A member of the RNA family "Small nucleolar RNA Z199" from Turnera subulata, 81 nucleotides long. Rfam classes the family as a C/D-box small nucleolar RNA.
RNA sequence: AAAUCAGGUGAUGAGGAUAAAUACUGCAACAAGAUGAUGGAUUUAGAUCCAUGAUUACUUGUAUUUAAGUCUCUGAUGAUU
Numbered sequence: 001a002a003a004u005c006a007g008g009u010g011a012u013g014a015g016g017a018u019a020a021a022u023a024c025u026g027c028a029a030c031a032a033g034a035u036g037a038u039g040g041a042u043u044u045a046g047a048u049c050c051a052u053g054a055u056u057a058c059u060u061g062u063a064u065u066u067a068a069g070u071c072u073c074u075g076a077u078g079a080u081u
Stems, first nucleotide, its partner, number of pairs: 001081002004079003039050004
Notes
From the family's description: snoZ199 is a C/D box small nucleolar RNA, which acts as a methylation guide RNA for sites on 18S and 25S rRNA. Rice snoZ199 is reported to be homologous to Arabidopsis snoR13. The base pairs follow the family's consensus structure, which was predicted with PFOLD. Gene Ontology terms of the family: nucleolus and RNA processing. The organism belongs to Turnera, within Eukaryota. The literature on the family includes a 2003 paper in Nucleic Acids Res by Chen et al., "The high diversity of snoRNAs in plants: identification and comparative study of 120 snoRNA genes from Oryza sativa".